[Rfam]
Shown here is a 423-nucleotide RNA sequence from Klebsiella sp. RIT-PI-d, a member of the family "cspA thermoregulator". The family has 15 seed sequences and 2,094 matches in Rfam 15.1. The source organism's lineage runs through Bacteria, Pseudomonadati, Pseudomonadota, Gammaproteobacteria and Klebsiella. Gene Ontology terms of the family: response to temperature stimulus and regulation of translation. By type it is an RNA thermoregulator.
RNA sequence: GUCGGUUUGAUAUACAGACCAUAAAGCAGUUUAGUUAAGCAGUGUCCAUCAAGAGUUAUCUGUUGAUACCCUUCGUUGAGAGCUUUUCCUUUAACGCUUCAAAAUCUGUAAUGCACGCCAUAUUGCCGAAAGGCACUCAUAUAUCUUUUAAAGGUAAUCUCUAUGUCCGGUAAAAUGACUGGUAUCGUAAAAUGGUUCAACGCUGAUAAAGGCUUUGGUUUCAUCACUCCUGACGAUGGCUCAAAAGACGUGUUCGUACACUUCUCUGCUAUCCAGAACCAGGGUUACAAAUCUCUGGACGAAGGUCAGAAAGUGUCCUUCACCAUCGAAAGCGGCGCUAAAGGCCCGGCAGCUGGCAACGUAACCAGCCUGUAAGCUUAAAAAGCUAAAGAUUCGAAUCCUCGCUCCGGCGGGGAUUUUUUU
Numbered sequence: 001g002u003c004g005g006u007u008u009g010a011u012a013u014a015c016a017g018a019c020c021a022u023a024a025a026g027c028a029g030u031u032u033a034g035u036u037a038a039g040c041a042g043u044g045u046c047c048a049u050c051a052a053g054a055g056u057u058a059u060c061u062g063u064u065g066a067u068a069c070c071c072u073u074c075g076u077u078g079a080g081a082g083c084u085u086u087u088c089c090u091u092u093a094a095c096g097c098u099u100c101a102a103a104a105u106c107u108g109u110a111a112u113g114c115a116c117g118c119c120a121u122a123u124u125g126c127c128g129a130a131a132g133g134c135a136c137u138c139a140u141a142u143a144u145c146u147u148u149u150a151a152a153g154g155u156a157a158u159c160u161c162u163a164u165g166u167c168c169g170g171u172a173a174a175a176u177g178a179c180u181g182g183u184a185u186c187g188u189a190a191a192a193u194g195g196u197u198c199a200a201c202g203c204u205g206a207u208a209a210a211g212g213c214u215u216u217g218g219u220u221u222c223a224u225c226a227c228u229c230c231u232g233a234c235g236a237u238g239g240c241u242c243a244a245a246a247g248a249c250g251u252g253u254u255c256g257u258a259c260a261c262u263u264c265u266c267u268g269c270u271a272u273c274c275a276g277a278a279c280c281a282g283g284g285u286u287a288c289a290a291a292u293c294u295c296u297g298g299a300c301g302a303a304g305g306u307c308a309g310a311a312a313g314u315g316u317c318c319u320u321c322a323c324c325a326u327c328g329a330a331a332g333c334g335g336c337g338c339u340a341a342a343g344g345c346c347c348g349g350c351a352g353c354u355g356g357c358a359a360c361g362u363a364a365c366c367a368g369c370c371u372g373u374a375a376g377c378u379u380a381a382a383a384a385g386c387u388a389a390a391g392a393u394u395c396g397a398a399u400c401c402u403c404g405c406u407c408c409g410g411c412g413g414g415g416a417u418u419u420u421u422u423u
Stems, first nucleotide, its partner, number of pairs: 004020006025231002028228003039221001042220001045217001046212002049209001055207004060202001062201005068196003074165003078161003088154007096114002099111001125134003167182005234328006247255002258316006265310004269305002272299006281292001333348003337345003349373004353368004376386003396419010
Dot-bracket structure: ...((((((.....))))))....((.(((........(..(..(((.(.....((((.(.(((((.(((...(((.(((.......(((((((.((.(...........).))..........(((....))).............)))))))....))).))).(((((......)))))...........))))))))).)))).).))....)..))....))).))..((((((.......((.....))..((((((.((((((.((((((...(..........).))))))....)).))))))))))......))))))....(((.(((...))))))((((((((........)))).))))..(((.....))).........((((((((((....))))))))))....